This 88-nucleotide RNA sequence from Sarcophilus harrisii belongs to the Rfam family "mir-599 microRNA precursor family".
[Rfam]
RNA sequence: AAGUGUCCAGAGUGUGUUUGAUAAGCUGAUAUGGGACAGGGAUUCUUUUCACUGUUGUGUCAGUUUAUCAAACCCAUACCUGGACGCC
Numbered sequence: 001a002a003g004u005g006u007c008c009a010g011a012g013u014g015u016g017u018u019u020g021a022u023a024a025g026c027u028g029a030u031a032u033g034g035g036a037c038a039g040g041g042a043u044u045c046u047u048u049u050c051a052c053u054g055u056u057g058u059g060u061c062a063g064u065u066u067a068u069c070a071a072a073c074c075c076a077u078a079c080c081u082g083g084a085c086g087c088c
Stems, first nucleotide, its partner, number of pairs: 005085005012077003016073017035056005040050003
Rfam links the family to the GO terms RISC complex and miRNA-mediated post-transcriptional gene silencing.
The organism belongs to Sarcophilus, within Eukaryota.
The match comes from Rfam's covariance-model search (100 bits).